Shown here is a 107-nucleotide RNA sequence from Populus trichocarpa, a member of the family "MIR6450 microRNA precursor family".

RNA sequence: AGGACCCAUGUCUCUUGGGUCCUGUGUCAGGACCCAACGCUUUUAGGUCCUGCGGCAGUACCCAUUUCUUUUGGGUCCUCACGCAGGACCCAUGCGAAAUAGGUCCU
Numbered sequence: 001a002g003g004a005c006c007c008a009u010g011u012c013u014c015u016u017g018g019g020u021c022c023u024g025u026g027u028c029a030g031g032a033c034c035c036a037a038c039g040c041u042u043u044u045a046g047g048u049c050c051u052g053c054g055g056c057a058g059u060a061c062c063c064a065u066u067u068c069u070u071u072u073g074g075g076u077c078c079u080c081a082c083g084c085a086g087g088a089c090c091c092a093u094g095c096g097a098a099a100u101a102g103g104u105c106c107u
Stems, first nucleotide, its partner, number of pairs: 001107006008100002014094001016092009029079009044064001046062003050058001